The record is a 60-nucleotide RNA from Pseudomonas matsuisoli, which matches "nhaA-I RNA" in Rfam. Rfam describes the family as follows. Acidobacteria, Alphaproteobacteria, Betaproteobacteria and Gammaproteobacteria, Verrucomicrobia, cand. division NC10. NCBI's taxonomy places the organism under Bacteria, Pseudomonadati, Pseudomonadales, Pseudomonadaceae, Pseudomonas.
RNA sequence: GGGUGUCGCCGUAAUAUCACGGUAAGGCAGGUUUAACAUUGCGCAGGUCGGGCCGCCGCG
Numbered sequence: 001g002g003g004u005g006u007c008g009c010c011g012u013a014a015u016a017u018c019a020c021g022g023u024a025a026g027g028c029a030g031g032u033u034u035a036a037c038a039u040u041g042c043g044c045a046g047g048u049c050g051g052g053c054c055g056c057c058g059c060g
Base pairs, nucleotide, nucleotide: 005028006027007026008023009022010021011020012019042060043059044058046057047056048055